About this RNA
A member of the RNA family "c-di-AMP riboswitch aptamer (ydaO/yuaA leader)" from Paenibacillus oryzae, 178 nucleotides long. Taxonomically the source falls in Paenibacillus (Bacteria, Bacillota, Bacilli, Paenibacillaceae).
Nucleotides: 178
Base pairs, nucleotide, nucleotide: 011163012162013161014160018035019034020033021032022031023030024029036158037157038156039155040154041153046095096143097142098141104117105116106115107114120137121136122135123134
Number, partner (000 for none) and nucleotide at each position: 001000a002000u003000g004000u005000a006000a007000a008000c009000a010000a011163c012162g013161c014160u015000g016000a017000a018035u019034u020033u021032u022031u023030c024029c025000g026000a027000a028000u029024g030023g031022a032021a033020a034019a035018a036158g037157c038156g039155g040154g041153g042000g043000a044000a045000c046095c047000a048000a049000c050000g051000c052000g053000g054000c055000c056000g057000a058000a059000a060000u061000c062000u063000g064000c065000a066000u067000a068000c069000g070000c071000u072000u073000a074000u075000g076000u077000a078000u079000g080000c081000c082000g083000g084000u085000u086000u087000u088000a089000u090000c091000g092000c093000a094000a095046g096143g097142g098141g099000u100000g101000a102000a103000u104117c105116c106115g107114g108000g109000u110000u111000u112000a113000c114107c115106c116105g117104g118000u119000a120137g121136g122135g123134c124000u125000u126000c127000c128000u129000c130000u131000c132000u133000a134123g135122c136121c137120c138000g139000a140000a141098u142097c143096c144000g145000a146000c147000a148000g149000c150000u151000a152000a153041c154040c155039u156038c157037g158036c159000a160014a161013g162012c163011g164000a165000a166000c167000a168000a169000a170000g171000g172000a173000g174000a175000g176000a177000u178000g